[Rfam]
RNA sequence: AUAUGAUGAGAUGAUUAAUGAUUAAUUUCUCUAUUGAUUUGAUUGGCCAACAUGAUAGCCUAAAUACUGAAUAAUCUGAUCAUAA
Numbered sequence: 001a002u003a004u005g006a007u008g009a010g011a012u013g014a015u016u017a018a019u020g021a022u023u024a025a026u027u028u029c030u031c032u033a034u035u036g037a038u039u040u041g042a043u044u045g046g047c048c049a050a051c052a053u054g055a056u057a058g059c060c061u062a063a064a065u066a067c068u069g070a071a072u073a074a075u076c077u078g079a080u081c082a083u084a085a
Stems, first nucleotide, its partner, number of pairs: 002084004045060003